Notes: Shown here is a 217-nucleotide RNA from Thiorhodococcus minor, a member of the family "Group II catalytic intron D1-D4-6". Taxonomically the source falls in Thiorhodococcus (Bacteria, Pseudomonadati, Pseudomonadota, Gammaproteobacteria). Gene Ontology term of the family: Group II intron splicing. It scores 140 bits against the family's covariance model. A reference for the family is Bonen and Vogel (2001), "The ins and outs of group II introns", Trends Genet. Group II introns are found in rRNA, tRNA and mRNA of organelles in fungi, plants and protists, and also in mRNA in bacteria.

RNA sequence: CAAGUCCCGAGCCGGUAAGGAUUGGCCAUCCACCGGAACCGAGUGUGGCGUGGUGCGGGAGCGAUCCCGGCUGCGAAGCGAACACAGGGGGCGUGUAGGCUGUGUGAUAGAGCCCCGAAACUGAUGCCAGCGGAGCCGACGCAUUCCAAUCACCGGAAGGCAACAGUCUCGGCAUUGUAGCGGCCUGAUGUCGAGACUCCGCCGGGGUCUGAGAGCA
Numbered sequence: 001c002a003a004g005u006c007c008c009g010a011g012c013c014g015g016u017a018a019g020g021a022u023u024g025g026c027c028a029u030c031c032a033c034c035g036g037a038a039c040c041g042a043g044u045g046u047g048g049c050g051u052g053g054u055g056c057g058g059g060a061g062c063g064a065u066c067c068c069g070g071c072u073g074c075g076a077a078g079c080g081a082a083c084a085c086a087g088g089g090g091g092c093g094u095g096u097a098g099g100c101u102g103u104g105u106g107a108u109a110g111a112g113c114c115c116c117g118a119a120a121c122u123g124a125u126g127c128c129a130g131c132g133g134a135g136c137c138g139a140c141g142c143a144u145u146c147c148a149a150u151c152a153c154c155g156g157a158a159g160g161c162a163a164c165a166g167u168c169u170c171g172g173c174a175u176u177g178u179a180g181c182g183g184c185c186u187g188a189u190g191u192c193g194a195g196a197c198u199c200c201g202c203c204g205g206g207g208u209c210u211g212a213g214a215g216c217a
Stems, first nucleotide, its partner, number of pairs: 012036004019031004024185003039088002043085004048079001049075005056069005110209001112208006130202005135161003140155002166197011